Source information: Shown here is a 72-nucleotide sequence from Halovulum marinum, a member of the family "Singlet oxygen resistance RNA X". Rfam 15.1 lists 528 matches to the family in 356 species. Pairs were carried over by alignment from the consensus structure. Lineage of the source: Bacteria > Alphaproteobacteria > Rhodobacterales > Paracoccaceae > Halovulum. The literature on the family includes a 2016 paper in RNA Biol by Peng et al., "Regulation of a polyamine transporter by the conserved 3' UTR-derived sRNA SorX confers resistance to singlet oxygen and organic hydroperoxides in Rhodobacter sphaeroides". The family's RNA type in Rfam is small RNA.
RNA sequence: AGGGGUCGAGAGCGCGGCAGCGUUCUCACCUCCCUGUUGGACUUGGGCCGAGCCUUGUGCUCGGCCUUUUUU
Numbered sequence: 001a002g003g004g005g006u007c008g009a010g011a012g013c014g015c016g017g018c019a020g021c022g023u024u025c026u027c028a029c030c031u032c033c034c035u036g037u038u039g040g041a042c043u044u045g046g047g048c049c050g051a052g053c054c055u056u057g058u059g060c061u062c063g064g065c066c067u068u069u070u071u072u
Stems, first nucleotide, its partner, number of pairs: 008027007046066008